Small nucleolar RNA snoR77: a 138-nucleotide RNA from Triticum aestivum. The match comes from Rfam's covariance-model search (99 bits).
[Rfam]
RNA sequence: AGGCAGCCCUUUUUUCUGAUUACAAUGGCAAUGGAGGUGUUGCAUUGCUCGGAGAGUGAAUCUUCUGCUCUUCAGAUUAGCCGAGGUGGAUGUUCCAGCUUCCAUCCGUGAAGCUAGUCUAGUAGUCUUAAGAACAUU
Numbered sequence: 001a002g003g004c005a006g007c008c009c010u011u012u013u014u015u016c017u018g019a020u021u022a023c024a025a026u027g028g029c030a031a032u033g034g035a036g037g038u039g040u041u042g043c044a045u046u047g048c049u050c051g052g053a054g055a056g057u058g059a060a061u062c063u064u065c066u067g068c069u070c071u072u073c074a075g076a077u078u079a080g081c082c083g084a085g086g087u088g089g090a091u092g093u094u095c096c097a098g099c100u101u102c103c104a105u106c107c108g109u110g111a112a113g114c115u116a117g118u119c120u121a122g123u124a125g126u127c128u129u130a131a132g133a134a135c136a137u138u
Base pairs, nucleotide, nucleotide: 002041003040004039005038007037008036009034010033012031013030015028016027062132063131064130067127069125074120075119076118077117078116080114081113085106086105087104088103089102090101
Background: Lineage of the source: Eukaryota > Tracheophyta > Mesangiospermae > Liliopsida > Triticum.